[Rfam]
RNA: THF (Tetrahydrofolate) riboswitch aptamer
Organism: Lacticaseibacillus camelliae
RNA sequence: CUAGGAGUAGGCAUCAACGCGUUAAGUGCCACCGGAACGGAAUGUGAACGGUGGACGAAGGUCAUGUGGGCCGCGGUGUUGGUGCCGCAUUCGCCUGA
Numbered sequence: 001c002u003a004g005g006a007g008u009a010g011g012c013a014u015c016a017a018c019g020c021g022u023u024a025a026g027u028g029c030c031a032c033c034g035g036a037a038c039g040g041a042a043u044g045u046g047a048a049c050g051g052u053g054g055a056c057g058a059a060g061g062u063c064a065u066g067u068g069g070g071c072c073g074c075g076g077u078g079u080u081g082g083u084g085c086c087g088c089a090u091u092c093g094c095c096u097g098a
Stems, first nucleotide, its partner, number of pairs: 002097004010086010020075003026056002029054006040092005060072004